[Rfam]
Nucleotides: 076
Base pairs, nucleotide, nucleotide: 012044014043015042016041017040020076021075022074023073024072025071026070027039028038029037048065049064050063051062053060054059
Number, partner (000 for none) and nucleotide at each position: 001000a002000g003000c004000u005000g006000u007000u008000a009000u010000u011000u012044g013000a014043g015042g016041c017040u018000a019000c020076a021075g022074c023073a024072g025071a026070a027039g028038u029037g030000c031000u032000c033000a034000u035000g036000g037029c038028a039027u040017g041016g042015c043014c044012c045000u046000g047000u048065c049064a050063g051062a052000g053060u054059c055000c056000a057000a058000u059054g060053a061000a062051u063050c064049u065048g066000u067000g068000a069000a070026u071025u072024c073023u074022g075021c076020u
Shown here is a 76-nucleotide RNA from Alligator sinensis, a member of the family "Mammalian CPEB3 ribozyme". The organism belongs to Alligator, within Eukaryota. It scores 53 bits against the family's covariance model.